[Rfam]
RNA sequence: AGCACUAUAUUUAAACCUAUGAUUGGAUUUUCCAGAUUUUUGGUUAUGCUGUAGUACAAAAGAAUUCCUUGCUCUUUGUGUUGCACAGCUGACACAUGGCAUUCAGUUGUUGCUGUACAGAGUCAACAUGAAAAAAA
Number, nucleotide and partner (000 for none) at each position: 001a000002g057003c000004a055005c054006u053007a052008u051009a050010u000011u000012u000013a000014a045015a044016c043017c042018u000019a000020u000021g039022a038023u000024u036025g033026g000027a000028u000029u000030u000031u000032c000033c025034a000035g000036a024037u000038u022039u021040u000041u000042g017043g016044u015045u014046a000047u000048g000049c000050u009051g008052u007053a006054g005055u004056a000057c002058a000059a000060a000061a000062g000063a000064a000065u132066u131067c130068c000069u128070u000071g123072c122073u121074c120075u119076u000077u117078g116079u000080g000081u000082u000083g113084c112085a111086c109087a108088g107089c106090u000091g104092a103093c000094a000095c000096a000097u000098g000099g000100c000101a000102u000103u092104c091105a000106g089107u088108u087109g086110u000111u085112g084113c083114u000115g000116u078117a077118c000119a075120g074121a073122g072123u071124c000125a000126a000127c000128a069129u000130g067131a066132a065133a000134a000135a000136a000137a000
RNA: Small nucleolar RNA SNORA46